[Rfam]
RNA sequence: UUAUAUACAUCUACAAAUGGAUAAGGACUCGGUCUUAGUGUAUAGGAGUUUUUGAAAAUAAGGGAGCAAUAACCACUUUCUUGUUCUAAACAAGAUGGGGUAUUGCUCCUUU
Numbered sequence: 001u002u003a004u005a006u007a008c009a010u011c012u013a014c015a016a017a018u019g020g021a022u023a024a025g026g027a028c029u030c031g032g033u034c035u036u037a038g039u040g041u042a043u044a045g046g047a048g049u050u051u052u053u054g055a056a057a058a059u060a061a062g063g064g065a066g067c068a069a070u071a072a073c074c075a076c077u078u079u080c081u082u083g084u085u086c087u088a089a090a091c092a093a094g095a096u097g098g099g100g101u102a103u104u105g106c107u108c109c110u111u112u
Stems, first nucleotide, its partner, number of pairs: 006021001008019003060112012074098001079095004